[Rfam]
RNA sequence: GUGCCUCAAACUAAUGAGUAAGGAAAACCAAUUCGCCUUGCUAAUCGCUCGGCAGUUUGGCUUCUAAAAGGCAAUGGAAUGCCGUUGGAUGUUGGGAGGGGAGACUCUCCCUUCCCCUCGUCCACGGCAUUUCUU
Dot-bracket structure: ...(((.(..........).))).........(.(((..(.......)..))).)(((((...))))).....(.((((((((((..((.(..((.(((((.......))))).))..).)).)))))))))).)
Numbered sequence: 001g002u003g004c005c006u007c008a009a010a011c012u013a014a015u016g017a018g019u020a021a022g023g024a025a026a027a028c029c030a031a032u033u034c035g036c037c038u039u040g041c042u043a044a045u046c047g048c049u050c051g052g053c054a055g056u057u058u059g060g061c062u063u064c065u066a067a068a069a070g071g072c073a074a075u076g077g078a079a080u081g082c083c084g085u086u087g088g089a090u091g092u093u094g095g096g097a098g099g100g101g102a103g104a105c106u107c108u109c110c111c112u113u114c115c116c117c118u119c120g121u122c123c124a125c126g127g128c129a130u131u132u133c134u135u
Stems, first nucleotide, its partner, number of pairs: 004023003008019001033055001035053003040048001056068005074135001076133010088122002091119001094116002097113005